[Rfam]
Small nucleolar RNA R11/Z151: a 94-nucleotide sequence from Zingiber officinale. Pairs were carried over by alignment from the consensus structure, which was predicted with PFOLD. The match comes from Rfam's covariance-model search (71 bits). The organism belongs to Zingiber, within Eukaryota. Rfam classes the family as a C/D-box small nucleolar RNA.
RNA sequence: UGGCUGAUGAUGAAUGAUCUGUAAGGUCUUAGCGGAUUUCGUUGAGGCUUUAGAGUCUAUGAUCUUACUAUUGUUGUUACACACACUGAAGCCU
Numbered sequence: 001u002g003g004c005u006g007a008u009g010a011u012g013a014a015u016g017a018u019c020u021g022u023a024a025g026g027u028c029u030u031a032g033c034g035g036a037u038u039u040c041g042u043u044g045a046g047g048c049u050u051u052a053g054a055g056u057c058u059a060u061g062a063u064c065u066u067a068c069u070a071u072u073g074u075u076g077u078u079a080c081a082c083a084c085a086c087u088g089a090a091g092c093c094u
Base pairs, nucleotide, nucleotide: 002093003092004091005090